[Rfam]
RNA sequence: GAAGGUCUUCCUGGGGCCAUACUAGAAGCGUUCACAUCACAGCCCCUCUCAGAUUCUUACGAAUCUGUGAAUUCUGCU
Numbered sequence: 001g002a003a004g005g006u007c008u009u010c011c012u013g014g015g016g017c018c019a020u021a022c023u024a025g026a027a028g029c030g031u032u033c034a035c036a037u038c039a040c041a042g043c044c045c046c047u048c049u050c051a052g053a054u055u056c057u058u059a060c061g062a063a064u065c066u067g068u069g070a071a072u073u074c075u076g077c078u
Stems, first nucleotide, its partner, number of pairs: 013046005021078001023076005028040001030038001050067007
Dot-bracket structure: ............(((((...[.[[[[[(.(.......).).)))))...(((((((....)))))))....]]]]].]
RNA: Mammalian CPEB3 ribozyme
Organism: Chelydra serpentina